RNA sequence: CUGCCAUAACAGCCAUAGCAGAAAUGGUCAUGUUGUGGCCCUGUCAGAUUCUAAUGAACCUGCGAAUUUUGCU
Numbered sequence: 001c002u003g004c005c006a007u008a009a010c011a012g013c014c015a016u017a018g019c020a021g022a023a024a025u026g027g028u029c030a031u032g033u034u035g036u037g038g039c040c041c042u043g044u045c046a047g048a049u050u051c052u053a054a055u056g057a058a059c060c061u062g063c064g065a066a067u068u069u070u071g072c073u
Stems, first nucleotide, its partner, number of pairs: 012039003017073007024036003045062003049058003
RNA: Mammalian CPEB3 ribozyme
Organism: Alligator sinensis